[Rfam]
The record is a 52-nucleotide sequence from Nocardioides humilatus, which matches "L17-Actino-Proteobacteria ribosomal protein leader" in Rfam.
RNA sequence: GUUUCCGGAUCCUCCGGAACCCACUACCCCGGUACCUGACACGGCCGGGGAG
Numbered sequence: 001g002u003u004u005c006c007g008g009a010u011c012c013u014c015c016g017g018a019a020c021c022c023a024c025u026a027c028c029c030c031g032g033u034a035c036c037u038g039a040c041a042c043g044g045c046c047g048g049g050g051a052g
Stems, first nucleotide, its partner, number of pairs: 001020002004018005024052002027050007